[Rfam]
RNA sequence: UUAGUAACAGAGAUCAGAGAGGGAGAACAAGUCCCUCAGAC
Numbered sequence: 001u002u003a004g005u006a007a008c009a010g011a012g013a014u015c016a017g018a019g020a021g022g023g024a025g026a027a028c029a030a031g032u033c034c035c036u037c038a039g040a041c
Base pairs, nucleotide, nucleotide: 019037020036021035022034023033024032
RNA: Ocean-VII RNA